[Rfam]
RNA: Purine riboswitch aptamer
Organism: Orenia metallireducens
RNA sequence: AGGAUAAAUAUUGCUAGUACUCGUAUAAUAUUGAGAAUAAGGCUCGAGAGUUUCUACCAGAUGGCCGUAAACUAUCUGACUACGGGUGGAAGUGUACCUAGG
Numbered sequence: 001a002g003g004a005u006a007a008a009u010a011u012u013g014c015u016a017g018u019a020c021u022c023g024u025a026u027a028a029u030a031u032u033g034a035g036a037a038u039a040a041g042g043c044u045c046g047a048g049a050g051u052u053u054c055u056a057c058c059a060g061a062u063g064g065c066c067g068u069a070a071a072c073u074a075u076c077u078g079a080c081u082a083c084g085g086g087u088g089g090a091a092g093u094g095u096a097c098c099u100a101g102g
Base pairs, nucleotide, nucleotide: 018088019087020086021085022084023083024082025081029049031047032046033045034044035043058078059077060076061075062074063073064072